[Rfam]
RNA sequence: GUGUCGGUUGCGGCUCAUCGUAUGGCAGUUUGCUGUGCAGUUUGCCAGCUGCCUAGCGAAGGGCAACAAAUGACAG
Numbered sequence: 001g002u003g004u005c006g007g008u009u010g011c012g013g014c015u016c017a018u019c020g021u022a023u024g025g026c027a028g029u030u031u032g033c034u035g036u037g038c039a040g041u042u043u044g045c046c047a048g049c050u051g052c053c054u055a056g057c058g059a060a061g062g063g064c065a066a067c068a069a070a071u072g073a074c075a076g
Base pairs, nucleotide, nucleotide: 003074004073005072006071008069009068010067013064014063015062016061018059019058020057021056024053025052026051027050032049033048034047
mir-745 microRNA precursor family: a 76-nucleotide RNA sequence from Diatraea saccharalis. Pairs were carried over by alignment from the consensus structure, which was predicted with RNAalifold. The organism belongs to Diatraea, within Eukaryota.